The family of this 132-nucleotide RNA from Aphis gossypii is "U11 spliceosomal RNA". It scores 89 bits against the family's covariance model. Its family is annotated with mRNA 5'-splice site recognition, pre-mRNA 5'-splice site binding and U11 snRNP in the Gene Ontology. Rfam classes the family as a spliceosomal small nuclear RNA. NCBI's taxonomy places the organism under Eukaryota, Panarthropoda, Aphidoidea, Aphidini, Aphis.

RNA sequence: AAAAAGGGUGUCUUCCGCUUACAUGGAACAUCGGAUCCUAAGGGUUCUGGUGAGGUAUGGCCAUCAAUACAUACCUGACACGUAAUUUUUAGAACCGCGGGCAGUUGGCUACCAUCGAGUGCCGGCGCCUGC
Numbered sequence: 001a002a003a004a005a006g007g008g009u010g011u012c013u014u015c016c017g018c019u020u021a022c023a024u025g026g027a028a029c030a031u032c033g034g035a036u037c038c039u040a041a042g043g044g045u046u047c048u049g050g051u052g053a054g055g056u057a058u059g060g061c062c063a064u065c066a067a068u069a070c071a072u073a074c075c076u077g078a079c080a081c082g083u084a085a086u087u088u089u090u091a092g093a094a095c096c097g098c099g100g101g102c103a104g105u106u107g108g109c110u111a112c113c114a115u116c117g118a119g120u121g122c123c124g125g126c127g128c129c130u131g132c
Stems, first nucleotide, its partner, number of pairs: 008081005013028005029052007037044002053076007099130004104126005110121003113117001
Dot-bracket structure: .......((((((((((......)))))(((((((.((....)).)))))))(((((((..........)))))))))))).................((((.(((((.((((...).))))))))))))..